[Rfam]
A member of the RNA family "L31-Actinobacteria ribosomal protein leader" from Streptomyces scabiei, 47 nucleotides long. Rfam's curators put it in the seed alignment. Clan: Ribosomal Protein L31 Leader clan. The literature on the family includes a 2020 paper in BMC Microbiol by Eckert and Weinberg, "Discovery of 20 novel ribosomal leader candidates in bacteria and archaea".

RNA sequence: UCGGCUCCGGUUCACGCUCUCGCAGCCCGCGACAGCGACCCGGCGCC
Dot-bracket structure: ..(((.((((....((((.((((.....)))).))))..)))).)))